[Rfam]
RNA sequence: UGGAGGACUGAGAAGGUUGAACAGUUUGUAUUGUGCUGUUUUAACUGGUAAUAACCUCCAAGAAUAACAAACAAACAUGCCAGAUAUGUAGCUCUGCAAAAAGCCGAGCUAGAAUGUGUGUUUGUAGACAUAAU
Numbered sequence: 001u002g003g004a005g006g007a008c009u010g011a012g013a014a015g016g017u018u019g020a021a022c023a024g025u026u027u028g029u030a031u032u033g034u035g036c037u038g039u040u041u042u043a044a045c046u047g048g049u050a051a052u053a054a055c056c057u058c059c060a061a062g063a064a065u066a067a068c069a070a071a072c073a074a075a076c077a078u079g080c081c082a083g084a085u086a087u088g089u090a091g092c093u094c095u096g097c098a099a100a101a102a103g104c105c106g107a108g109c110u111a112g113a114a115u116g117u118g119u120g121u122u123u124g125u126a127g128a129c130a131u132a133a134u
Stems, first nucleotide, its partner, number of pairs: 002059005015046004019041007078126003083122002086119005
RNA: Small nucleolar RNA SNORA47
Organism: Takifugu flavidus